[Rfam]
A member of the RNA family "mir-451 microRNA precursor family" from Bos taurus, 71 nucleotides long. The base pairs follow the family's consensus structure, which was predicted with RNAalifold. The source organism's lineage runs through Eukaryota, Bilateria, Chordata, Bovinae and Bos. For this family Rfam cites "Role of MicroRNA miR-27a and miR-451 in the regulation of MDR1/P-glycoprotein expression in human cancer cells" (Zhu et al., Biochem Pharmacol, 2008). Rfam 15.1 lists 658 matches to the family in 500 species.

RNA sequence: CUUGGGGUGGCGAGGAAACCGUUACCAUUACUGAGUUUAGUAAUGGUAACGGUUCUCUUGCUGCACCCAGA
Numbered sequence: 001c002u003u004g005g006g007g008u009g010g011c012g013a014g015g016a017a018a019c020c021g022u023u024a025c026c027a028u029u030a031c032u033g034a035g036u037u038u039a040g041u042a043a044u045g046g047u048a049a050c051g052g053u054u055c056u057c058u059u060g061c062u063g064c065a066c067c068c069a070g071a
Stems, first nucleotide, its partner, number of pairs: 007064003011060003017054004022049012